[Rfam]
RNA sequence: CAGGCAAUAUGUGACUGGCGUACACGGAUGAACCGUGAGGAAGCGUAUUGUUUAAAAUAGCCGUUCGCCUGGGUGAGGUUA
Numbered sequence: 001c002a003g004g005c006a007a008u009a010u011g012u013g014a015c016u017g018g019c020g021u022a023c024a025c026g027g028a029u030g031a032a033c034c035g036u037g038a039g040g041a042a043g044c045g046u047a048u049u050g051u052u053u054a055a056a057a058u059a060g061c062c063g064u065u066c067g068c069c070u071g072g073g074u075g076a077g078g079u080u081a
Stems, first nucleotide, its partner, number of pairs: 003052010015040002017069004024036004058076001060074003
This 81-nucleotide sequence from Streptohalobacillus salinus belongs to the Rfam family "ZMP/ZTP riboswitch aptamer (pfl RNA motif)". It scores 52 bits against the family's covariance model.